[Rfam]
RNA sequence: CGGAGAUCGGCGACGGGCGGACGCCUCGCCAACCCGGUCAGGUCCGGAAGGAAGCAGCCGUAACGAGUUUCGCUCCGGGUCGUUGUCCGGUCUCCACCU
Dot-bracket structure: ...(((((.((((((..((((((.((((......((((....(((....)))....))))...))))...)).))))...))))))..)))))......
RNA: Bacterial small signal recognition particle RNA